This 88-nucleotide RNA from Gallaecimonas xiamenensis belongs to the Rfam family "t44 RNA". This family consists of a number of bacterial RNA genes of between 135 and 170 bases in length. Taxonomically the source falls in Gallaecimonas xiamenensis (Bacteria, Pseudomonadota, Gammaproteobacteria, Gallaecimonas). By type it is a small RNA.
RNA sequence: UUGCCAUUAACCCUAACCCACACACGGGUCGACACAUGCGCCGGGGUGCCCUCAAGGGUCGGAUGCAUGGGACUCGUGGAGGCCUAAC
Numbered sequence: 001u002u003g004c005c006a007u008u009a010a011c012c013c014u015a016a017c018c019c020a021c022a023c024a025c026g027g028g029u030c031g032a033c034a035c036a037u038g039c040g041c042c043g044g045g046g047u048g049c050c051c052u053c054a055a056g057g058g059u060c061g062g063a064u065g066c067a068u069g070g071g072a073c074u075c076g077u078g079g080a081g082g083c084c085u086a087a088c
Base pairs, nucleotide, nucleotide: 023078024077025076026075027074028073029072030071035069036068037067038066039065041062042061043060048059049058050057051056